[Rfam]
Shown here is a 145-nucleotide sequence from Krasilnikovia cinnamomea, a member of the family "c-di-AMP riboswitch aptamer (ydaO/yuaA leader)". Pairs were carried over by alignment from the consensus structure. The source organism's lineage runs through Bacteria, Bacillati, Actinomycetota, Actinomycetes and Krasilnikovia.
RNA sequence: UCGUCGGGCAUUCCUCAACCAGGCUUGGAGCGGGGGACCCACUAGUUCUUCGGUGCGCUGCCGCGCGCCUCGGGGUGAAGCCGCAGACCGCGGCCGGGCGCCUCAGCCCGAACCCGACAGCUGACCUCGCAGGCGUGGAGGUUCU
Numbered sequence: 001u002c003g004u005c006g007g008g009c010a011u012u013c014c015u016c017a018a019c020c021a022g023g024c025u026u027g028g029a030g031c032g033g034g035g036g037a038c039c040c041a042c043u044a045g046u047u048c049u050u051c052g053g054u055g056c057g058c059u060g061c062c063g064c065g066c067g068c069c070u071c072g073g074g075g076u077g078a079a080g081c082c083g084c085a086g087a088c089c090g091c092g093g094c095c096g097g098g099c100g101c102c103u104c105a106g107c108c109c110g111a112a113c114c115c116g117a118c119a120g121c122u123g124a125c126c127u128c129g130c131a132g133g134c135g136u137g138g139a140g141g142u143u144c145u
Base pairs, nucleotide, nucleotide: 002135003134004133005132012029013028014027030130031129032128033127034126035125040072073115074114075113081093082092083091084090096109097108098107099106

The match comes from Rfam's covariance-model search (56 bits). Rfam's curators write: This family represents a conserved RNA structure found upstream of the ydaO and yuaA genes in Bacillus subtilis and related genes in other bacteria.